[Rfam]
RNA sequence: AGGUAAUGCCUGCUGCACCUUUAUCACCGUAGGCACUCGGUUGUAUUGUGGGUUCGUAAGGGACCUUAGACGUGAAUCGUCGAUGAUGCAGCGUGAGGUGGGGUUGGAUGCCCU
Numbered sequence: 001a002g003g004u005a006a007u008g009c010c011u012g013c014u015g016c017a018c019c020u021u022u023a024u025c026a027c028c029g030u031a032g033g034c035a036c037u038c039g040g041u042u043g044u045a046u047u048g049u050g051g052g053u054u055c056g057u058a059a060g061g062g063a064c065c066u067u068a069g070a071c072g073u074g075a076a077u078c079g080u081c082g083a084u085g086a087u088g089c090a091g092c093g094u095g096a097g098g099u100g101g102g103g104u105u106g107g108a109u110g111c112c113c114u
Stems, first nucleotide, its partner, number of pairs: 001020004007035007036097004040092008050066006069081004100114005
Dot-bracket structure: [[[[..(((((((...]]]]........)))))))((((((((((((..((((((.....))))))..((((.....))))...)))))))).))))..(((((.....)))))
A member of the RNA family "epsC RNA" from Paenibacillaceae bacterium GAS479, 114 nucleotides long. Lineage of the source: Bacteria > Bacillota > Bacilli > Caryophanales > Paenibacillaceae.